[Rfam]
RNA sequence: CACACAUUUCAAAGAGAGCUUAUGGGACCAAAACCAAGCUCUUGUAACACUGUGACCUAAGAUUGAAAUUCUCCAUAGGAUGUAACAGAUACUCAAUAGUGCUAUCUUUUCCUGAGGAAAUAUAAGA
Numbered sequence: 001c002a003c004a005c006a007u008u009u010c011a012a013a014g015a016g017a018g019c020u021u022a023u024g025g026g027a028c029c030a031a032a033a034c035c036a037a038g039c040u041c042u043u044g045u046a047a048c049a050c051u052g053u054g055a056c057c058u059a060a061g062a063u064u065g066a067a068a069u070u071c072u073c074c075a076u077a078g079g080a081u082g083u084a085a086c087a088g089a090u091a092c093u094c095a096a097u098a099g100u101g102c103u104a105u106c107u108u109u110u111c112c113u114g115a116g117g118a119a120a121u122a123u124a125a126g127a
Base pairs, nucleotide, nucleotide: 005054006053007052014045015042016041017040018039019038021037024035025034070120072118073117074116077113078112079111080110085105087103088102090101091100092099093098
RNA: Small nucleolar RNA SNORA25